[Rfam]
Nucleotides: 075
Base pairs, nucleotide, nucleotide: 015025016024035070036069038065039064043060044059047056048055049054
Number, partner (000 for none) and nucleotide at each position: 001000c002000u003000u004000g005000a006000c007000c008000g009000a010000g011000c012000c013000g014000a015025g016024c017000a018000g019000c020000a021000g022000u023000g024016g025015c026000c027000g028000u029000c030000c031000g032000g033000g034000g035070u036069c037000a038065c039064g040000g041000u042000c043060c044059u045000g046000u047056c048055c049054g050000u051000a052000g053000g054049u055048g056047g057000c058000g059044a060043g061000c062000a063000g064039c065038g066000c067000c068000u069036g070035g071000g072000c073000c074000u075000c